[Rfam]
RNA sequence: ACGGGGUGUCCUUUGGAACCGGCGGUUGGAAGCGUGAAGAACUCCCAUCCUCCCAGCUCAAAGGGCACCCCACUUGAUUUCCCUGGUCCUCGCUCCAAGUUUCACGCCGUGGAUUCAG
Numbered sequence: 001a002c003g004g005g006g007u008g009u010c011c012u013u014u015g016g017a018a019c020c021g022g023c024g025g026u027u028g029g030a031a032g033c034g035u036g037a038a039g040a041a042c043u044c045c046c047a048u049c050c051u052c053c054c055a056g057c058u059c060a061a062a063g064g065g066c067a068c069c070c071c072a073c074u075u076g077a078u079u080u081c082c083c084u085g086g087u088c089c090u091c092g093c094u095c096c097a098a099g100u101u102u103c104a105c106g107c108c109g110u111g112g113a114u115u116c117a118g
Stems, first nucleotide, its partner, number of pairs: 003071011016059002019056001021054002024050002027047001029045001031043002098115002101113004